[Rfam]
RNA sequence: UGUCCCCUGGAAUCAGGUGUGGGUGUAGCCUGUGCACCAAUCACCAGGCGACCCACUCAUGAUUUCAGAGGUCA
Numbered sequence: 001u002g003u004c005c006c007c008u009g010g011a012a013u014c015a016g017g018u019g020u021g022g023g024u025g026u027a028g029c030c031u032g033u034g035c036a037c038c039a040a041u042c043a044c045c046a047g048g049c050g051a052c053c054c055a056c057u058c059a060u061g062a063u064u065u066c067a068g069a070g071g072u073c074a
Stems, first nucleotide, its partner, number of pairs: 002073001004071002007068001009066006017058001021054004028049004
A member of the RNA family "mir-551 microRNA precursor family" from Coregonus sp. 'balchen', 74 nucleotides long. The literature on the family includes a 2008 paper in Genome Res by Murchison et al., "Conservation of small RNA pathways in platypus". A search with the family's covariance model found it, with a score of 59 bits. Lineage of the source: Eukaryota > Teleostomi > Clupeocephala > Salmoniformes > Coregonus.